[Rfam]
RNA sequence: GGCGAUAAACGCGCGCGAAAUAAACGGACCGGACCCGGGGGCGGUACCCGGCGGCUCCACCAAAAUCCCCUCAUUGGGGGGCGACGGGGCCGAAACAGGAUCGACGGACGUGUAAAGGCGUUAGCUUUCGCUCGGUGAGGUACCACCGUUAUCGGUCCGAAAAGUACAGUUGCCAAUGACAACCGUGCUCCGGUGGCCCUCGCUGCGUAA
Numbered sequence: 001g002g003c004g005a006u007a008a009a010c011g012c013g014c015g016c017g018a019a020a021u022a023a024a025c026g027g028a029c030c031g032g033a034c035c036c037g038g039g040g041g042c043g044g045u046a047c048c049c050g051g052c053g054g055c056u057c058c059a060c061c062a063a064a065a066u067c068c069c070c071u072c073a074u075u076g077g078g079g080g081g082c083g084a085c086g087g088g089g090c091c092g093a094a095a096c097a098g099g100a101u102c103g104a105c106g107g108a109c110g111u112g113u114a115a116a117g118g119c120g121u122u123a124g125c126u127u128u129c130g131c132u133c134g135g136u137g138a139g140g141u142a143c144c145a146c147c148g149u150u151a152u153c154g155g156u157c158c159g160a161a162a163a164g165u166a167c168a169g170u171u172g173c174c175a176a177u178g179a180c181a182a183c184c185g186u187g188c189u190c191c192g193g194u195g196g197c198c199c200u201c202g203c204u205g206c207g208u209a210a
Base pairs, nucleotide, nucleotide: 001132002131003130004129005128013121014120015119016118025110026109029107030106031105035051036050037049038048039047052092053091054090055089056088057087058086133148134147135146136145

Shown here is a 210-nucleotide sequence from Thermohalobaculum xanthum, a member of the family "permuted transfer-messenger RNA". A search with the family's covariance model found it, with a score of 145 bits. The literature on the family includes a 1996 paper in RNA by Williams and Bartel, "Phylogenetic analysis of tmRNA secondary structure". Rfam links the family to the GO term RNA catabolic process.